The record is a 37-nucleotide RNA from Azospirillum thermophilum, which matches "CRISPR RNA direct repeat element" in Rfam.
RNA sequence: GUCUUCCCGGGCAGCAAUGCCCGGGCCUCGUUGAAGC
Numbered sequence: 001g002u003c004u005u006c007c008c009g010g011g012c013a014g015c016a017a018u019g020c021c022c023g024g025g026c027c028u029c030g031u032u033g034a035a036g037c
Stems, first nucleotide, its partner, number of pairs: 006025007

Taxonomically the source falls in Azospirillum (Bacteria, Pseudomonadati, Rhodospirillales, Azospirillaceae). The base pairs follow the family's consensus structure, which was predicted with WAR. The family has 6 seed sequences and 1,291 matches in Rfam 15.1.